[Rfam]
RNA sequence: AAAGUAGGCCGCCUUAUCGCUUUUUAAUAAUGAACGUGUUUUGAUAUUGAAGAGAGGAAAGUCCGAACACCGUAGUGCAAUAUAGUGGUUAAUGGCCACCAGUUGUAAAACUAGGAAAAGUGCAACAGAAAGUAUGUACAGGUAAUGCUGUAGUGAAAUCAGGUAAACUCUAUAUGGUGCAAUGCCAUGUAUACCAACGUUUAAGGGUUGCACGCCCAAUGUUGGAGGGUAGGCAGCUAAAGUACACUGGUAACAGUGUAUUAAGAUAAAUGAUAAGGGUGUUUUUUGUUGUGAAUGGUUUCAUUCUCAACUUUAAGCAUACAGAAUUCGGCUUAUAGGCUUACUUUAAAA
Numbered sequence: 001a002a003a004g005u006a007g008g009c010c011g012c013c014u015u016a017u018c019g020c021u022u023u024u025u026a027a028u029a030a031u032g033a034a035c036g037u038g039u040u041u042u043g044a045u046a047u048u049g050a051a052g053a054g055a056g057g058a059a060a061g062u063c064c065g066a067a068c069a070c071c072g073u074a075g076u077g078c079a080a081u082a083u084a085g086u087g088g089u090u091a092a093u094g095g096c097c098a099c100c101a102g103u104u105g106u107a108a109a110a111c112u113a114g115g116a117a118a119a120g121u122g123c124a125a126c127a128g129a130a131a132g133u134a135u136g137u138a139c140a141g142g143u144a145a146u147g148c149u150g151u152a153g154u155g156a157a158a159u160c161a162g163g164u165a166a167a168c169u170c171u172a173u174a175u176g177g178u179g180c181a182a183u184g185c186c187a188u189g190u191a192u193a194c195c196a197a198c199g200u201u202u203a204a205g206g207g208u209u210g211c212a213c214g215c216c217c218a219a220u221g222u223u224g225g226a227g228g229g230u231a232g233g234c235a236g237c238u239a240a241a242g243u244a245c246a247c248u249g250g251u252a253a254c255a256g257u258g259u260a261u262u263a264a265g266a267u268a269a270a271u272g273a274u275a276a277g278g279g280u281g282u283u284u285u286u287u288g289u290u291g292u293g294a295a296u297g298g299u300u301u302c303a304u305u306c307u308c309a310a311c312u313u314u315a316a317g318c319a320u321a322c323a324g325a326a327u328u329c330g331g332c333u334u335a336u337a338g339g340c341u342u343a344c345u346u347u348a349a350a351a
Stems, first nucleotide, its partner, number of pairs: 001347010011336001012278007020054009059334003063331005068179004075213004080175005085099005100114001101112004115170002120168002122164002137152005183235004194225005205217004242261008
A member of the RNA family "Bacterial RNase P class A" from Seonamhaeicola algicola, 351 nucleotides long. It scores 200 bits against the family's covariance model. From the family's description: Ribonuclease P (RNase P) is a ubiquitous endoribonuclease, found in archaea, bacteria and eukarya as well as chloroplasts and mitochondria. Its best characterised activity is the generation of mature 5'-ends of tRNAs by cleaving the 5'-leader elements of precursor-tRNAs. Cellular RNase Ps are ribonucleoproteins. RNA from bacterial RNase Ps retains its catalytic activity in the absence of the protein subunit, i.e. it is a ribozyme. Rfam links the family to the GO terms tRNA processing, ribonuclease P activity and dimeric ribonuclease P complex. Rfam classes the family as a ribozyme.